Small nucleolar RNA snoR138: a 136-nucleotide sequence from Dichanthelium oligosanthes. The source organism's lineage runs through Eukaryota, Tracheophyta, Magnoliopsida, Panicodae and Dichanthelium. Gene Ontology terms of the family: nucleolus and RNA processing. The base pairs follow the family's consensus structure, which was predicted with mfold.
RNA sequence: UGUGCCUCUUGAAUAACCAGUUGCAGUUAUUAGUAUAUUUGCAUUUGGUUCAGACAGGGGCACUUAACAAAUGGGAUCUUUUGAGGGAAGGGAUCUUGUACUUUGUUCAUCCCUUCCUAGAUUGAUUCCAACAGUA
Numbered sequence: 001u002g003u004g005c006c007u008c009u010u011g012a013a014u015a016a017c018c019a020g021u022u023g024c025a026g027u028u029a030u031u032a033g034u035a036u037a038u039u040u041g042c043a044u045u046u047g048g049u050u051c052a053g054a055c056a057g058g059g060g061c062a063c064u065u066a067a068c069a070a071a072u073g074g075g076a077u078c079u080u081u082u083g084a085g086g087g088a089a090g091g092g093a094u095c096u097u098g099u100a101c102u103u104u105g106u107u108c109a110u111c112c113c114u115u116c117c118u119a120g121a122u123u124g125a126u127u128c129c130a131a132c133a134g135u136a
Stems, first nucleotide, its partner, number of pairs: 003062005009057001015050006022043001024041003073129006082100001085097003109122003